[Rfam]
Rfam assigns this 82-nucleotide RNA from Citrobacter koseri to the family "sroB RNA". By type it is a small RNA. On this family, see Vogel et al., Nucleic Acids Res 2003: "RNomics in Escherichia coli detects new sRNA species and indicates parallel transcriptional output in bacteria". Pairs were carried over by alignment from the consensus structure, which was predicted with LocARNA. The sequence is in the family's curated seed alignment. The organism belongs to Citrobacter koseri, within Bacteria.
RNA sequence: UAACCAGGGCGCUACGUCCUGGCAUAAUAAUAACGAUGAAAUUCCUCUUUGACGGGCCAAUAGAAAUAUUGGCCAUUUUUUU
Numbered sequence: 001u002a003a004c005c006a007g008g009g010c011g012c013u014a015c016g017u018c019c020u021g022g023c024a025u026a027a028u029a030a031u032a033a034c035g036a037u038g039a040a041a042u043u044c045c046u047c048u049u050u051g052a053c054g055g056g057c058c059a060a061u062a063g064a065a066a067u068a069u070u071g072g073c074c075a076u077u078u079u080u081u082u
Base pairs, nucleotide, nucleotide: 007019008018009017010016011015028033055074056073057072058071059070060069061068062067